RNA sequence: AGACGACACCCCUUUACUCGGAUCGUCCGGCACGUUCCUGCCGGUGAAGGAGACAAC
Dot-bracket structure: .........((.((((..........((((((......)))))))))))).......
Numbered sequence: 001a002g003a004c005g006a007c008a009c010c011c012c013u014u015u016a017c018u019c020g021g022a023u024c025g026u027c028c029g030g031c032a033c034g035u036u037c038c039u040g041c042c043g044g045u046g047a048a049g050g051a052g053a054c055a056a057c
Stems, first nucleotide, its partner, number of pairs: 010050002013048004027044006